Rfam assigns this 125-nucleotide RNA sequence from Muraenolepis orangiensis to the family "Small Cajal body specific RNA 11". Rfam's curators write: scaRNAs are a specific class of small nuclear RNAs which localise to the Cajal bodies and guide the modification of RNA polymerase II transcribed spliceosomal RNAs U1, U2, U4, U5 and U12. ACA57 belongs to the H/ACA box class of guide RNAs as it has the predicted hairpin-hinge-hairpin-tail structure, conserved H/ACA-box motifs and is found associated with GAR1. ACA57 is predicted to guide the pseudouridylation of the U5 spliceosomal RNA at position U43. It is annotated as a small Cajal body RNA. The literature on the family includes a 2002 paper in EMBO J by Darzacq et al., "Cajal body-specific small nuclear RNAs: a novel class of 2'-O-methylation and pseudouridylation guide RNAs". The family's consensus secondary structure was predicted with RNAalifold.
RNA sequence: UUGUCCUACCCAUGUUUCCUGUUGUCUGUAACAGAGAAGCUUCCGGGUUUGGACAUAGAGCAUUGCGUCUACAUUGGAGGCCCGGCCAUAGUACAGCCAUGGUCUUAAAGGCAUGACGCUACAUA
Numbered sequence: 001u002u003g004u005c006c007u008a009c010c011c012a013u014g015u016u017u018c019c020u021g022u023u024g025u026c027u028g029u030a031a032c033a034g035a036g037a038a039g040c041u042u043c044c045g046g047g048u049u050u051g052g053a054c055a056u057a058g059a060g061c062a063u064u065g066c067g068u069c070u071a072c073a074u075u076g077g078a079g080g081c082c083c084g085g086c087c088a089u090a091g092u093a094c095a096g097c098c099a100u101g102g103u104c105u106u107a108a109a110g111g112c113a114u115g116a117c118g119c120u121a122c123a124u125a
Base pairs, nucleotide, nucleotide: 002055003054004053005052006051008049010047011046021040022039023038025035026034027033028032065119066118067117068116069115072111074109077106078105079104080103081102082101084098085097086096089093